[Rfam]
RNA sequence: UGACACAGUGAAGAACCUUGCUGCGAAGACUACAAACGGAGAAAUGCGUCUUUUGGGUUUUUGACUCAUAAAGUCCGCUUCUCAACAAACGCUUUGUUGCCGCCUUGGAAAAGUCCCGCGACCUGAGGCAGAAAGUGGUCAGUCGUAAAGAGGUACGUCCUUUCUCGAGUUUAAUGGCGAAGAAGCUACAUGCUGAGCUGGACGAAGGUCAAGGACAUUUCUGUCGAAGCAAAGUAAUGCAUAGAAGGCAUCUGCGGCUGAUGUCCAACUCACGGGGCUUACUCCUCACAUAGUGUC
Numbered sequence: 001u002g003a004c005a006c007a008g009u010g011a012a013g014a015a016c017c018u019u020g021c022u023g024c025g026a027a028g029a030c031u032a033c034a035a036a037c038g039g040a041g042a043a044a045u046g047c048g049u050c051u052u053u054u055g056g057g058u059u060u061u062u063g064a065c066u067c068a069u070a071a072a073g074u075c076c077g078c079u080u081c082u083c084a085a086c087a088a089a090c091g092c093u094u095u096g097u098u099g100c101c102g103c104c105u106u107g108g109a110a111a112a113g114u115c116c117c118g119c120g121a122c123c124u125g126a127g128g129c130a131g132a133a134a135g136u137g138g139u140c141a142g143u144c145g146u147a148a149a150g151a152g153g154u155a156c157g158u159c160c161u162u163u164c165u166c167g168a169g170u171u172u173a174a175u176g177g178c179g180a181a182g183a184a185g186c187u188a189c190a191u192g193c194u195g196a197g198c199u200g201g202a203c204g205a206a207g208g209u210c211a212a213g214g215a216c217a218u219u220u221c222u223g224u225c226g227a228a229g230c231a232a233a234g235u236a237a238u239g240c241a242u243a244g245a246a247g248g249c250a251u252c253u254g255c256g257g258c259u260g261a262u263g264u265c266c267a268a269c270u271c272a273c274g275g276g277g278c279u280u281a282c283u284c285c286u287c288a289c290a291u292a293g294u295g296u297c
Base pairs, nucleotide, nucleotide: 002297003296004295005294006293008289009288010287012286013285016244019241020240021239024107026106027105028104030102039083040082041081042080043079045077111280112279113278115277116276117275127140128139129137130136142154143153144152157216158215159214161208162207163205164204175200176199177198178197185193186192247265248264249263250262251261252260
Dot-bracket structure: .(((((.(((.((..[..[[[..(.(((.(........(((((.(...............................).)))))..................).))))...(((.(((.........((((.....)).)).(((.......)))..(((.((((..........((((......((.....))...))))...)).)).....)))......................]]]..]..((((((.......)))))).........))))))....)))))...)))))
A member of the RNA family "RNase MRP" from Desmophyllum pertusum, 297 nucleotides long. From the family's description: RNase MRP is an enzymatically active ribonucleoprotein with two distinct roles in eukaryotes. In mitochondria it plays a direct role in the initiation of mitochondrial DNA replication. In the nucleus it is involved in precursor rRNA processing, where it cleaves the internal transcribed spacer 1 between 18S and 5.8S rRNAs. Despite distinct functions, RNase MRP has been shown to be evolutionarily related to RNase P. Like eukaryotic RNase P, RNase MRP is not catalytically active without associated protein subunits. The source organism's lineage runs through Eukaryota, Opisthokonta, Cnidaria, Scleractinia and Desmophyllum. The match comes from Rfam's covariance-model search (52 bits). It is annotated as a ribozyme.